RNA: MIR403 microRNA precursor family
Organism: Corchorus capsularis
Nucleotides: 111
Base pairs, nucleotide, nucleotide: 001109002108003107005105006104007103011099012098013097014096015095016094017093018092019091020090021089022088023087024086025085026084028082029081030080033077043068045066046065047064048063
Number, partner (000 for none) and nucleotide at each position: 001109a002108c003107a004000u005105a006104u007103u008000u009000c010000a011099g012098g013097u014096u015095u016094g017093u018092g019091c020090g021089u022088g023087a024086a025085u026084c027000u028082a029081a030080u031000a032000c033077u034000u035000g036000a037000a038000c039000c040000g041000u042000a043068a044000g045066c046065c047064g048063c049000a050000c051000a052000a053000a054000a055000u056000c057000u058000g059000g060000a061000u062000g063048g064047u065046g066045g067000g068043u069000u070000u071000u072000g073000u074000u075000u076000c077033a078000u079000u080030g081029u082028u083000a084026g085025a086024u087023u088022c089021a090020c091019g092018c093017a094016c095015a096014a097013a098012c099011u100000c101000g102000u103007a104006a105005u106000a107003u108002g109001u110000c111000u